[Rfam]
RNA sequence: GCCGAGCUCAGUAGCGGGAGCUUGUAACCCGAGCGGGGGCAACAGGGUGGGUUCGGACGUUUGGUGGUGUUGUUGGGUCUGGGCUGCAGUUGUGCGAGGGGCUGUCCCGCCCGAUCCAAGUUGGGCAGUUGUUCAUGUGGACUCAGGCGAAGGCUUGGGUCAAGUGGGCCUUGAAUUGGAGGAGACCGCGUGAGGCUGGCUUCACAGAGCUGCGAACACCUCUAACUCUCAACGGUGGACGGAUUACGGGUCGCCGCAUUAUGAGUCCAAUGUGGCCCAGCGGCCCACUCUAACGGACACCCACUUUU
Numbered sequence: 001g002c003c004g005a006g007c008u009c010a011g012u013a014g015c016g017g018g019a020g021c022u023u024g025u026a027a028c029c030c031g032a033g034c035g036g037g038g039g040c041a042a043c044a045g046g047g048u049g050g051g052u053u054c055g056g057a058c059g060u061u062u063g064g065u066g067g068u069g070u071u072g073u074u075g076g077g078u079c080u081g082g083g084c085u086g087c088a089g090u091u092g093u094g095c096g097a098g099g100g101g102c103u104g105u106c107c108c109g110c111c112c113g114a115u116c117c118a119a120g121u122u123g124g125g126c127a128g129u130u131g132u133u134c135a136u137g138u139g140g141a142c143u144c145a146g147g148c149g150a151a152g153g154c155u156u157g158g159g160u161c162a163a164g165u166g167g168g169c170c171u172u173g174a175a176u177u178g179g180a181g182g183a184g185a186c187c188g189c190g191u192g193a194g195g196c197u198g199g200c201u202u203c204a205c206a207g208a209g210c211u212g213c214g215a216a217c218a219c220c221u222c223u224a225a226c227u228c229u230c231a232a233c234g235g236u237g238g239a240c241g242g243a244u245u246a247c248g249g250g251u252c253g254c255c256g257c258a259u260u261a262u263g264a265g266u267c268c269a270a271u272g273u274g275g276c277c278c279a280g281c282g283g284c285c286c287a288c289u290c291u292a293a294c295g296g297a298c299a300c301c302c303a304c305u306u307u308u
Stems, first nucleotide, its partner, number of pairs: 001040003004023006028037003044307009058295004063289005070283010081268005092259003103253002106250004111242002115239004120233006127227003131170001133168002138163001140161009177224006189214003196207003
A member of the RNA family "Plant signal recognition particle RNA" from Ananas comosus, 308 nucleotides long. The organism belongs to Ananas, within Eukaryota. For this family Rfam cites "Towards the structure of the mammalian signal recognition particle" (Wild et al., Curr Opin Struct Biol, 2002). Rfam classes the family as a non-coding RNA gene. It scores 200 bits against the family's covariance model.